[Rfam]
RNA: Acido-Lenti-1 RNA
Organism: Prevotella sp. CAG:386
RNA sequence: CCCAGGGCGUAGCCCUGGGCUAAGAGCUUCUGCCCUUUCAGGGCG
Numbered sequence: 001c002c003c004a005g006g007g008c009g010u011a012g013c014c015c016u017g018g019g020c021u022a023a024g025a026g027c028u029u030c031u032g033c034c035c036u037u038u039c040a041g042g043g044c045g
Base pairs, nucleotide, nucleotide: 001019002018003017004016005015006014007013008012032044033043034042035041036040